Source information: The record is a 316-nucleotide sequence from Leiothrix lutea, which matches "7SK RNA" in Rfam. A reference for the family is Blencowe (2002), "Transcription: surprising role for an elusive small nuclear RNA", Curr Biol. The organism belongs to Leiothrix, within Eukaryota. Pairs were carried over by alignment from the consensus structure, which is taken from published work. Rfam classes the family as a non-coding RNA gene.
RNA sequence: GGAUAUGAAGGUAGCCUGGCUGUGAGAUCUGAUAUGCAUGGGUUGAUCUGACUGAUUUGGCUAGCUUAGGCAGGUGUUCACUUUCUUCCUCGGCAUUCCAUGCGUGUUCCUCCUGGUGCUGUGUGCUUGGUUAAUGAGGACAGCCUCCCCAGUAGACAUGGUUCACUUGGCAAGGAUGUGUGGUAGCUGUGCUCCCCUGCUGGAAGCUCUAAGUAAGCUCAAGGUCCAUUUGUAGAUGAAUGUAAGGUAGUCAAGCAUCCAAUACUGAAGCCAUAUCCGAAUGAGAAGCUGCAUGCAGCAGUUUGCCAGUGGCUUU
Numbered sequence: 001g002g003a004u005a006u007g008a009a010g011g012u013a014g015c016c017u018g019g020c021u022g023u024g025a026g027a028u029c030u031g032a033u034a035u036g037c038a039u040g041g042g043u044u045g046a047u048c049u050g051a052c053u054g055a056u057u058u059g060g061c062u063a064g065c066u067u068a069g070g071c072a073g074g075u076g077u078u079c080a081c082u083u084u085c086u087u088c089c090u091c092g093g094c095a096u097u098c099c100a101u102g103c104g105u106g107u108u109c110c111u112c113c114u115g116g117u118g119c120u121g122u123g124u125g126c127u128u129g130g131u132u133a134a135u136g137a138g139g140a141c142a143g144c145c146u147c148c149c150c151a152g153u154a155g156a157c158a159u160g161g162u163u164c165a166c167u168u169g170g171c172a173a174g175g176a177u178g179u180g181u182g183g184u185a186g187c188u189g190u191g192c193u194c195c196c197c198u199g200c201u202g203g204a205a206g207c208u209c210u211a212a213g214u215a216a217g218c219u220c221a222a223g224g225u226c227c228a229u230u231u232g233u234a235g236a237u238g239a240a241u242g243u244a245a246g247g248u249a250g251u252c253a254a255g256c257a258u259c260c261a262a263u264a265c266u267g268a269a270g271c272c273a274u275a276u277c278c279g280a281a282u283g284a285g286a287a288g289c290u291g292c293a294u295g296c297a298g299c300a301g302u303u304u305g306c307c308a309g310u311g312g313c314u315u316u
Base pairs, nucleotide, nucleotide: 001099002098003097006092007091008090010088011087013084014083018081024078025077027075028074029073030072031071033069035063037059038058041057042056043055044054045052107161108160111156112155113130114129115128116127118126119125131152132151138148139147140146186256187255188254192250193249195247196246198244199243200242207238210235213233214232215231216230217229279316280315281314285307288302289301290300291299292298

Its Rfam clan is "7SK clan".